[Rfam]
SraG RNA: a 188-nucleotide RNA sequence from Xenorhabdus japonica.
The family's RNA type in Rfam is small RNA.
From the family's description: This RNA was discovered in E. coli during a large scale screen.
The match comes from Rfam's covariance-model search (106 bits).
NCBI's taxonomy places the organism under Bacteria, Pseudomonadati, Gammaproteobacteria, Enterobacterales, Xenorhabdus.
RNA sequence: CUUCUUGCUACACCCUCACGACUAAUGACAGUGCUCAAUCCUUUAAGGACUCUCAUUAGCCGCGCGAGUCACUGUAGCGGAAGAGGUUUAAAUUUUAGAAACGGUAAAAAUAGGGUUUAAAUCUCUUAACUCCGGUUUCUAUCAAUUCCGUUUCCUAGAAGAAAAGGGGCCCGAUUAGGCCCCUUUUC
Numbered sequence: 001c002u003u004c005u006u007g008c009u010a011c012a013c014c015c016u017c018a019c020g021a022c023u024a025a026u027g028a029c030a031g032u033g034c035u036c037a038a039u040c041c042u043u044u045a046a047g048g049a050c051u052c053u054c055a056u057u058a059g060c061c062g063c064g065c066g067a068g069u070c071a072c073u074g075u076a077g078c079g080g081a082a083g084a085g086g087u088u089u090a091a092a093u094u095u096u097a098g099a100a101a102c103g104g105u106a107a108a109a110a111u112a113g114g115g116u117u118u119a120a121a122u123c124u125c126u127u128a129a130c131u132c133c134g135g136u137u138u139c140u141a142u143c144a145a146u147u148c149c150g151u152u153u154c155c156u157a158g159a160a161g162a163a164a165a166g167g168g169g170c171c172c173g174a175u176u177a178g179g180c181c182c183c184u185u186u187u188c
Stems, first nucleotide, its partner, number of pairs: 001083004006079002010075003017066001019064002022059007089141002166183006